[Rfam]
RNA: Plastid-psbA-3 3UTR RNA
RNA sequence: AAAGGAGCAAUAACCAAUUUCUUGUUCUAUCAAGAAACUGGUACUGCCCCUUUACU
Numbered sequence: 001a002a003a004g005g006a007g008c009a010a011u012a013a014c015c016a017a018u019u020u021c022u023u024g025u026u027c028u029a030u031c032a033a034g035a036a037a038c039u040g041g042u043a044c045u046g047c048c049c050c051u052u053u054a055c056u
Base pairs, nucleotide, nucleotide: 001053002052003051004050005049007047008046009045011043012042014040019036020035021034022033023032024031